Shown here is a 212-nucleotide RNA from Ewingella americana, a member of the family "GlmZ RNA activator of glmS mRNA". It is annotated as a small RNA. Rfam's curators write: This RNA was discovered in E. coli during a large scale screen. The sraJ gene was expressed in early logarithmic phase, but its level decreased with cell growth. On this family, see Argaman et al., Curr Biol 2001: "Novel small RNA-encoding genes in the intergenic regions of Escherichia coli". The source organism's lineage runs through Bacteria, Pseudomonadati, Yersiniaceae, Ewingella and Ewingella americana. A search with the family's covariance model found it, with a score of 158 bits.
RNA sequence: GUAGAUGCUCAUUCCACCUCCUAUGUUUGCCUUAGGGCUUCAUAAAACUGGGAAUGACGCAGAGCCACUUUAUAGUGCCUAUUGUCUAUCUGACCGAUAAGCGCCUCUCAUCAGGCAUUUAUCAACCAGCAGGCAAAUCGUUGAGUGAGGCACUCCCCUGUUGUCUUAGACCUGAUUGUUUUAUGCACUUGCCACUCGGCAAGUGUUUUUUU
Numbered sequence: 001g002u003a004g005a006u007g008c009u010c011a012u013u014c015c016a017c018c019u020c021c022u023a024u025g026u027u028u029g030c031c032u033u034a035g036g037g038c039u040u041c042a043u044a045a046a047a048c049u050g051g052g053a054a055u056g057a058c059g060c061a062g063a064g065c066c067a068c069u070u071u072a073u074a075g076u077g078c079c080u081a082u083u084g085u086c087u088a089u090c091u092g093a094c095c096g097a098u099a100a101g102c103g104c105c106u107c108u109c110a111u112c113a114g115g116c117a118u119u120u121a122u123c124a125a126c127c128a129g130c131a132g133g134c135a136a137a138u139c140g141u142u143g144a145g146u147g148a149g150g151c152a153c154u155c156c157c158c159u160g161u162u163g164u165c166u167u168a169g170a171c172c173u174g175a176u177u178g179u180u181u182u183a184u185g186c187a188c189u190u191g192c193c194a195c196u197c198g199g200c201a202a203g204u205g206u207u208u209u210u211u212u
Base pairs, nucleotide, nucleotide: 001065002064006061007060008059009057010056011055012054015052017051019044027037074154075153076152077151078150079149080148084134085133086132087131096123097122098121099120100119101118163171164170165169185206186205187204188203189202190201191200192199193198